[Rfam]
Nucleotides: 155
Stems, first nucleotide, its partner, number of pairs: 003063005009058001015051007024042003081148006088125003092122001094120001096119001099116005129140002
Number, partner (000 for none) and nucleotide at each position: 001000u002000u003063u004062g005061c006060c007059u008000c009058c010000c011000g012000a013000a014000u015051a016050g017049c018048u019047a020046a021045a022000a023000g024042a025041c026040g027000a028000u029000u030000c031000u032000u033000u034000a035000u036000a037000c038000u039000a040026c041025g042024u043000c044000g045021u046020u047019u048018a049017g050016c051015u052000c053000a054000g055000a056000c057000a058009g059007a060006g061005g062004c063003g064000c065000a066000u067000a068000g069000c070000a071000u072000u073000a074000c075000c076000a077000u078000u079000u080000u081148c082147g083146a084145a085144g086143c087000g088125g089124u090123u091000u092122g093000a094120g095000g096119g097000u098000g099116a100115g101114g102113a103112a104000c105000u106000c107000a108000a109000u110000u111000u112103u113102u114101u115100u116099u117000u118000u119096u120094c121000c122092c123090a124089g125088c126000u127000a128000u129140u130139c131000c132000u133000u134000u135000c136000c137000u138000a139130g140129a141000u142000g143086g144085c145084u146083u147082c148081g149000a150000a151000c152000a153000u154000u155000u
The family of this 155-nucleotide RNA from Ziziphus jujuba is "Small nucleolar RNA snoR138". The match comes from Rfam's covariance-model search (84 bits). Rfam links the family to the GO terms RNA processing and nucleolus.